[Rfam]
RNA sequence: UUGCACGGUGCCUCCCGGGCAUCUCUGAAUCUACAUGACGUGAACGCCCCGAUGCACGUGCGAAAUCGUCGCCGUUCGUGUUGCAGUUCAUCCCCAAUUUUCCACGGUUGAUCUGUGUCAAAGUAACGGCGAAAUUU
Dot-bracket structure: ..(((((..((.....((((.((.(..............).))..))))....)).))))).........((((((..((.(((((...(((.............)))....))))).))....)))))).......
The family of this 137-nucleotide RNA from Vigna angularis is "small nucleolar RNA snoR134". Lineage of the source: Eukaryota > Streptophyta > Magnoliopsida > Fabaceae > Vigna angularis. It is annotated as an H/ACA-box small nucleolar RNA. For this family Rfam cites "Mining small RNA sequencing data: a new approach to identify small nucleolar RNAs in Arabidopsis" (Chen and Wu, Nucleic Acids Res, 2009). A search with the family's covariance model found it, with a score of 91 bits.